[Rfam]
RNA sequence: CAUUGAACAGGCGAUGGAGUUCGCCAUUAAACGCCCUAGAGCUAAUGACUCCUACCAGAAA
Numbered sequence: 001c002a003u004u005g006a007a008c009a010g011g012c013g014a015u016g017g018a019g020u021u022c023g024c025c026a027u028u029a030a031a032c033g034c035c036c037u038a039g040a041g042c043u044a045a046u047g048a049c050u051c052c053u054a055c056c057a058g059a060a061a
Stems, first nucleotide, its partner, number of pairs: 010025004016052006033042002

About this RNA: The family of this 61-nucleotide RNA sequence from Neobacillus cucumis is "Fluoride riboswitch aptamer (crcB RNA motif)". The match comes from Rfam's covariance-model search (56 bits). The organism belongs to Neobacillus, within Bacteria. Rfam links the family to the GO terms positive regulation of gene expression and response to fluoride. The base pairs follow the family's consensus structure, which is taken from published work.